[Rfam]
RNA sequence: GAAUUGUGUUUAACGCUCGUCAAUGACGAGACUUAUGGAAG
Number, nucleotide and partner (000 for none) at each position: 001g000002a000003a000004u000005u000006g000007u000008g000009u000010u000011u000012a000013a000014c000015g000016c030017u029018c028019g027020u026021c025022a000023a000024u000025g021026a020027c019028g018029a017030g016031a000032c000033u000034u000035a000036u000037g000038g000039a000040a000041g000
This 41-nucleotide sequence from Erwinia sp. OLSSP12 belongs to the Rfam family "nuoG RNA". The base pairs follow the family's consensus structure, which is taken from published work.